[Rfam]
RNA sequence: GUUUCCCCAGCUGGAGAGAGGCGGCCUUCACAGUGAAGAUCGCCCACCGAAGGAGCAAGUCGCGGCAGUGCCCGCGAUGAAUCUCUCAGGUAAAGCGGACAGCAGGGCAAUA
Numbered sequence: 001g002u003u004u005c006c007c008c009a010g011c012u013g014g015a016g017a018g019a020g021g022c023g024g025c026c027u028u029c030a031c032a033g034u035g036a037a038g039a040u041c042g043c044c045c046a047c048c049g050a051a052g053g054a055g056c057a058a059g060u061c062g063c064g065g066c067a068g069u070g071c072c073c074g075c076g077a078u079g080a081a082u083c084u085c086u087c088a089g090g091u092a093a094a095g096c097g098g099a100c101a102g103c104a105g106g107g108c109a110a111u112a
Stems, first nucleotide, its partner, number of pairs: 006107003010103004020044004046091003049087002053085003059078007
Dot-bracket structure: .....(((.((((......((((.................)))).(((((..(((...(((((((......)))))))....))))).)))........)))).))).....
Record summary:
The record is a 112-nucleotide sequence from Diaphorobacter ruginosibacter, which matches "Glycine riboswitch aptamer" in Rfam. Lineage of the source: Bacteria > Pseudomonadati > Betaproteobacteria > Burkholderiales > Diaphorobacter. From the family's description: This family represents the bacterial glycine riboswitch. Glycine riboswitches usually consist of two metabolite-binding aptamers domains with similar structures in tandem. The aptamers cooperatively bind glycine to regulate the expression of downstream genes.